Rfam assigns this 116-nucleotide sequence from Vibrio ziniensis to the family "Manganese Mn2+ riboswitch aptamer (yybP-ykoY)".
RNA sequence: CCGCCUGUCUUUGGGGAGUAGCUUAUCAAUAACUCAGGCAAGUGUUAUUGAUUCGUUCGUCAACAUAAUUGGUGCAAAAUCACCAUGGCGUCCGAGACUCGAAGCCUUUCGAGUUU
Numbered sequence: 001c002c003g004c005c006u007g008u009c010u011u012u013g014g015g016g017a018g019u020a021g022c023u024u025a026u027c028a029a030u031a032a033c034u035c036a037g038g039c040a041a042g043u044g045u046u047a048u049u050g051a052u053u054c055g056u057u058c059g060u061c062a063a064c065a066u067a068a069u070u071g072g073u074g075c076a077a078a079a080u081c082a083c084c085a086u087g088g089c090g091u092c093c094g095a096g097a098c099u100c101g102a103a104g105c106c107u108u109u110c111g112a113g114u115u116u
Stems, first nucleotide, its partner, number of pairs: 026051008053095003058090005070085005096115007

Background: The source organism's lineage runs through Bacteria, Pseudomonadota, Gammaproteobacteria, Vibrionales and Vibrio. This RNA was originally discovered in E. coli during a large scale screen and was named SraF. The family was later found to exist upstream of related families of protein genes in many bacteria, including the the yybP and ykoK genes in B. subtilis. The specific functions of these proteins are unknown, but this structured RNA element may be involved in their genetic regulation as a riboswitch. The match comes from Rfam's covariance-model search (47 bits).